[Rfam]
RNA sequence: UUACCCAUCGGGAAUGAGGUUCUCCCCAAGUCAUAUGACUUAAACCGCUUUUAUAAGCUGAUGACUUCUGCGAAUAC
Numbered sequence: 001u002u003a004c005c006c007a008u009c010g011g012g013a014a015u016g017a018g019g020u021u022c023u024c025c026c027c028a029a030g031u032c033a034u035a036u037g038a039c040u041u042a043a044a045c046c047g048c049u050u051u052u053a054u055a056a057g058c059u060g061a062u063g064a065c066u067u068c069u070g071c072g073a074a075u076a077c
Base pairs, nucleotide, nucleotide: 010026011025012024013023016068017067018066019065020064021063047058048057049056050055
A member of the RNA family "Fluoride riboswitch aptamer (crcB RNA motif)" from Clostridium sp. chh4-2, 77 nucleotides long. A search with the family's covariance model found it, with a score of 50 bits.